[Rfam]
RNA sequence: GGGUUGGCAUUAGCUCAAGCGGUUAAUUCUUGAAGCCGGACCUUUCAUCCGUCUACUCCCUGUGCUGGGGUUCAAAACCCGCGGGUGCUUUCUGACCCUUUU
Numbered sequence: 001g002g003g004u005u006g007g008c009a010u011u012a013g014c015u016c017a018a019g020c021g022g023u024u025a026a027u028u029c030u031u032g033a034a035g036c037c038g039g040a041c042c043u044u045u046c047a048u049c050c051g052u053c054u055a056c057u058c059c060c061u062g063u064g065c066u067g068g069g070g071u072u073c074a075a076a077a078c079c080c081g082c083g084g085g086u087g088c089u090u091u092c093u094g095a096c097c098c099u100u101u102u
Stems, first nucleotide, its partner, number of pairs: 002097006013086004019082004027076002
RNA: Vault RNA
Organism: Otolemur garnettii